[Rfam]
A member of the RNA family "psbNH RNA" from Synechococcus sp. CC9902, 58 nucleotides long. The source organism's lineage runs through Bacteria, Bacillati, Synechococcales, Synechococcaceae and Synechococcus. The base pairs follow the family's consensus structure, which is taken from published work. The sequence is in the family's curated seed alignment.

RNA sequence: GGGUUAAAGGAAGUGCGGAUACUGUAGGGGCCAGCUCCGGUUAGGGGCUGGUCCUGCC
Numbered sequence: 001g002g003g004u005u006a007a008a009g010g011a012a013g014u015g016c017g018g019a020u021a022c023u024g025u026a027g028g029g030g031c032c033a034g035c036u037c038c039g040g041u042u043a044g045g046g047g048c049u050g051g052u053c054c055u056g057c058c
Stems, first nucleotide, its partner, number of pairs: 027055012